RNA sequence: UGGAUCCUUCGGGGCAGGGUGUAAUUCCCGACCGGCGGUGAUGUGAAUCAGCUACCUAUGGGAUAAUGCUGAUUCCUCAGUCCGUGACCCGCUUUGGCGGUGGAUUCGGUGCAAUUCCGAAGCCGACAGUAUAGUCUGGAUGGGAGAAGGAUGAU
Numbered sequence: 001u002g003g004a005u006c007c008u009u010c011g012g013g014g015c016a017g018g019g020u021g022u023a024a025u026u027c028c029c030g031a032c033c034g035g036c037g038g039u040g041a042u043g044u045g046a047a048u049c050a051g052c053u054a055c056c057u058a059u060g061g062g063a064u065a066a067u068g069c070u071g072a073u074u075c076c077u078c079a080g081u082c083c084g085u086g087a088c089c090c091g092c093u094u095u096g097g098c099g100g101u102g103g104a105u106u107c108g109g110u111g112c113a114a115u116u117c118c119g120a121a122g123c124c125g126a127c128a129g130u131a132u133a134g135u136c137u138g139g140a141u142g143g144g145a146g147a148a149g150g151a152u153g154a155u
Base pairs, nucleotide, nucleotide: 004152005151006150007149008148009147010146017029018028019027031135032134033125034124035085036084037083038082089100090099105121106120107119108118109117127138128137129136
This 155-nucleotide sequence from Hazenella coriacea belongs to the Rfam family "FMN riboswitch aptamer (RFN element)". Lineage of the source: Bacteria > Bacillati > Caryophanales > Thermoactinomycetaceae > Hazenella. It scores 109 bits against the family's covariance model.